[Rfam]
This 55-nucleotide sequence belongs to the Rfam family "Cyanobacterial functional RNA 1". The family's RNA type in Rfam is small RNA. It is one of the family's seed sequences.
RNA sequence: GUGUGGCUUCGGCCUCACACUCCUCACACCACCCCGCCCGGCGCGCCCGGGCUUU
Numbered sequence: 001g002u003g004u005g006g007c008u009u010c011g012g013c014c015u016c017a018c019a020c021u022c023c024u025c026a027c028a029c030c031a032c033c034c035c036g037c038c039c040g041g042c043g044c045g046c047c048c049g050g051g052c053u054u055u
Stems, first nucleotide, its partner, number of pairs: 001018003005014003036052006